[Rfam]
RNA sequence: UCAGAUCGCUAUCGUAUCUUACGGUAAAGAGAAACCGGCCGUACUGGGUCACGACGAAGCGGCUUACGCCAAAAACCGUCGGGCCGUCCUGGUUUACUAAGAGUCUUGCAUGAGCAAUAACUUCAGACCUUAUCUGUUG
Numbered sequence: 001u002c003a004g005a006u007c008g009c010u011a012u013c014g015u016a017u018c019u020u021a022c023g024g025u026a027a028a029g030a031g032a033a034a035c036c037g038g039c040c041g042u043a044c045u046g047g048g049u050c051a052c053g054a055c056g057a058a059g060c061g062g063c064u065u066a067c068g069c070c071a072a073a074a075a076c077c078g079u080c081g082g083g084c085c086g087u088c089c090u091g092g093u094u095u096a097c098u099a100a101g102a103g104u105c106u107u108g109c110a111u112g113a114g115c116a117a118u119a120a121c122u123u124c125a126g127a128c129c130u131u132a133u134c135u136g137u138u139g
Stems, first nucleotide, its partner, number of pairs: 001047004007041002014035002017032004054138001057135001059133001062130001065127001068124001075118001078115001079113003083109002086106001089103002
CpoB/ybgF ICR thermometer: a 139-nucleotide sequence from Candidatus Sodalis pierantonii. Imprinting control region from upstream of cpoB/ybgF (tol/pal system protein). It scores 116 bits against the family's covariance model. By type it is an RNA thermoregulator. Pairs were carried over by alignment from the consensus structure. Rfam links the family to the GO terms response to temperature stimulus and regulation of translation.